[Rfam]
RNA: small nucleolar RNA snoR135
Organism: Populus tomentosa
RNA sequence: UGAGCAGGUAUUGUGUAUCUGUGUUGUGUUACAUAUAAAAGCUCUUUGUUUCGCAAAGAAUUCCCUGCUAAAAAAGAACUGUCAGGGGAAAAUGGGCAGUUGUGUUUGAUAUAAGAUGUUGAAAUUUCAACAAUGAUCUCCAAAUCG
Number, nucleotide and partner (000 for none) at each position: 001u000002g000003a000004g068005c067006a066007g065008g064009u000010a062011u000012u000013g000014u000015g042016u041017a000018u039019c000020u000021g000022u000023g000024u000025u000026g000027u000028g000029u000030u000031a000032c000033a000034u000035a000036u000037a000038a000039a018040a000041g016042c015043u000044c000045u000046u000047u000048g000049u000050u000051u000052c000053g000054c000055a000056a000057a000058g000059a000060a000061u000062u010063c000064c008065c007066u006067g005068c004069u000070a000071a000072a000073a000074a000075a000076g000077a000078a000079c000080u000081g000082u000083c000084a000085g141086g140087g139088g138089a137090a000091a000092a000093u136094g000095g134096g000097c000098a000099g131100u130101u129102g128103u000104g000105u000106u000107u000108g000109a000110u000111a000112u000113a000114a000115g000116a000117u000118g000119u000120u000121g000122a000123a000124a000125u000126u000127u000128c102129a101130a100131c099132a000133a000134u095135g000136a093137u089138c088139u087140c086141c085142a000143a000144a000145u000146c000147g000